[Rfam]
RNA sequence: GGUAUUUGUUUACCUCCCACAAUUAAGCCCCGGAAACUUUAUUGUAAUUCAGGAAACAAUACA
Numbered sequence: 001g002g003u004a005u006u007u008g009u010u011u012a013c014c015u016c017c018c019a020c021a022a023u024u025a026a027g028c029c030c031c032g033g034a035a036a037c038u039u040u041a042u043u044g045u046a047a048u049u050c051a052g053g054a055a056a057c058a059a060u061a062c063a
Stems, first nucleotide, its partner, number of pairs: 006059006019045005025039003
RNA: Ribosomal protein L13 leader